A member of the RNA family "Plant small nucleolar RNA R71" from Eutrema salsugineum, 107 nucleotides long. On this family, see Brown et al., Trends Plant Sci 2003: "Plant snoRNAs: functional evolution and new modes of gene expression". Taxonomically the source falls in Eutrema (Eukaryota, Mesangiospermae, Gunneridae, rosids).
[Rfam]
RNA sequence: AAGCCAUGGUGUGGACAUUGGUUGGUAUAGCUUCGAAAUCUCUCCCAAGCUUCACCAAAGCUUUCAUUGGUGUGUUGUGUGAAGCUUGAGAUCUGAUUUCUCAGCUU
Numbered sequence: 001a002a003g004c005c006a007u008g009g010u011g012u013g014g015a016c017a018u019u020g021g022u023u024g025g026u027a028u029a030g031c032u033u034c035g036a037a038a039u040c041u042c043u044c045c046c047a048a049g050c051u052u053c054a055c056c057a058a059a060g061c062u063u064u065c066a067u068u069g070g071u072g073u074g075u076u077g078u079g080u081g082a083a084g085c086u087u088g089a090g091a092u093c094u095g096a097u098u099u100c101u102c103a104g105c106u107u
Stems, first nucleotide, its partner, number of pairs: 001107001003105002006101001058073001060071001